RNA sequence: UGUUUUCUACGUGACUAGCAACGCACAAAAGUUUCUGUGCGACAAAUAUGAAAUUUUGUCACAGGACUUUUGAGCGUUGCUAGUUGAAAGAAGAU
Numbered sequence: 001u002g003u004u005u006u007c008u009a010c011g012u013g014a015c016u017a018g019c020a021a022c023g024c025a026c027a028a029a030a031g032u033u034u035c036u037g038u039g040c041g042a043c044a045a046a047u048a049u050g051a052a053a054u055u056u057u058g059u060c061a062c063a064g065g066a067c068u069u070u071u072g073a074g075c076g077u078u079g080c081u082a083g084u085u086g087a088a089a090g091a092a093g094a095u
Base pairs, nucleotide, nucleotide: 004093005092006091007090012086013085014084015083016082017081018080019079020078021077022076023075024074026072027071028070029069030068031067032066033065035064036063037062038061041060042059043058044057045056